Shown here is a 106-nucleotide sequence from Uliginosibacterium sp. TH139, a member of the family "SAH (S-adenosyl-L-homocysteine) riboswitch aptamer". Gene Ontology terms of the family: regulation of gene expression and S-adenosylhomocysteine metabolic process. Pairs were carried over by alignment from the consensus structure, which is taken from published work.

RNA sequence: CUUUCCGAGGAGCGCUGCGAGACUGCCGGGUUUUUUCCCGCAAUCCCAGGCUCGGAACCUGCCGCCUCUCUUUGGCGCAGGCCAGAUUCAACGGCGCUCACCGCUU
Numbered sequence: 001c002u003u004u005c006c007g008a009g010g011a012g013c014g015c016u017g018c019g020a021g022a023c024u025g026c027c028g029g030g031u032u033u034u035u036u037c038c039c040g041c042a043a044u045c046c047c048a049g050g051c052u053c054g055g056a057a058c059c060u061g062c063c064g065c066c067u068c069u070c071u072u073u074g075g076c077g078c079a080g081g082c083c084a085g086a087u088u089c090a091a092c093g094g095c096g097c098u099c100a101c102c103g104c105u106u
Base pairs, nucleotide, nucleotide: 003057004056005055006054007053008052021045022044024042025041026040
Dot-bracket structure: ..((((((............((.(((.............))).))......)))))).................................................